[Rfam]
RNA sequence: CUGCACGAUGCACCCCGGGCUUCCCUGACGAUCUGGUUGACGGCGAAAGCCCCAAUGCUCGUGCUAAAUCGCCGCCGUUCAGUGUUGCAGUUUGGCUUUGUUCUUCCACGGUUGAUCUGUGUCAAAGCAACGGCUAAAUCU
Numbered sequence: 001c002u003g004c005a006c007g008a009u010g011c012a013c014c015c016c017g018g019g020c021u022u023c024c025c026u027g028a029c030g031a032u033c034u035g036g037u038u039g040a041c042g043g044c045g046a047a048a049g050c051c052c053c054a055a056u057g058c059u060c061g062u063g064c065u066a067a068a069u070c071g072c073c074g075c076c077g078u079u080c081a082g083u084g085u086u087g088c089a090g091u092u093u094g095g096c097u098u099u100g101u102u103c104u105u106c107c108a109c110g111g112u113u114g115a116u117c118u119g120u121g122u123c124a125a126a127g128c129a130a131c132g133g134c135u136a137a138a139u140c141u
Stems, first nucleotide, its partner, number of pairs: 003064006010058002017052005022046002024043002074134006083124002086121005095112003
Dot-bracket structure: ..((((((.((.....(((((((((................)).)).)))))....)))))))).........((((((...((.(((((....(((............)))....))))).))....)))))).......
A member of the RNA family "small nucleolar RNA snoR134" from Morus notabilis, 141 nucleotides long. The base pairs follow the family's consensus structure, which was predicted with RNAalifold. A reference for the family is Chen and Wu (2009), "Mining small RNA sequencing data: a new approach to identify small nucleolar RNAs in Arabidopsis", Nucleic Acids Res. Rfam links the family to the GO terms nucleolus and RNA processing.